[Rfam]
RNA sequence: UAAGAGAUAAUGCCGAAUCCCAAAUGGGUACGGAGGAACCAUAUUUUGGGGUGAAUCUGAUAUGUAUUAUCAGUAGGGAAUUCCUUCUUCCCGAACCCGUCAGCUAACUCCGGAGGCAUAGGAAGGAGUAGAA
Numbered sequence: 001u002a003a004g005a006g007a008u009a010a011u012g013c014c015g016a017a018u019c020c021c022a023a024a025u026g027g028g029u030a031c032g033g034a035g036g037a038a039c040c041a042u043a044u045u046u047u048g049g050g051g052u053g054a055a056u057c058u059g060a061u062a063u064g065u066a067u068u069a070u071c072a073g074u075a076g077g078g079a080a081u082u083c084c085u086u087c088u089u090c091c092c093g094a095a096c097c098c099g100u101c102a103g104c105u106a107a108c109u110c111c112g113g114a115g116g117c118a119u120a121g122g123a124a125g126g127a128g129u130a131g132a133a
Stems, first nucleotide, its partner, number of pairs: 011118004019028002031112005040048002049098003057073004076092004
Rfam assigns this 133-nucleotide RNA sequence from Caloramator australicus to the family "c-di-AMP riboswitch aptamer (ydaO/yuaA leader)".
It scores 113 bits against the family's covariance model.
From the family's description: This family represents a conserved RNA structure found upstream of the ydaO and yuaA genes in Bacillus subtilis and related genes in other bacteria.